Glycine riboswitch aptamer: a 98-nucleotide RNA from Mycolicibacterium insubricum.
NCBI's taxonomy places the organism under Bacteria, Actinomycetota, Mycobacteriales, Mycobacterium, Mycobacterium (subgen. Mycolicibacterium).
RNA sequence: CGCCCCGGCGCGGGAGAGUUUCGUGACCGCCAGUCACGGACGCCGAAGGAGCAACACCUCUCCGACAACCUCUCAGGCACCCGGACCGUGCCGGAUCC
Numbered sequence: 001c002g003c004c005c006c007g008g009c010g011c012g013g014g015a016g017a018g019u020u021u022c023g024u025g026a027c028c029g030c031c032a033g034u035c036a037c038g039g040a041c042g043c044c045g046a047a048g049g050a051g052c053a054a055c056a057c058c059u060c061u062c063c064g065a066c067a068a069c070c071u072c073u074c075a076g077g078c079a080c081c082c083g084g085a086c087c088g089u090g091c092c093g094g095a096u097c098c
Base pairs, nucleotide, nucleotide: 006093007092008091009090010089011088012087013086020040021039022038023037024036025035042078043077044076045074046073049072050071051070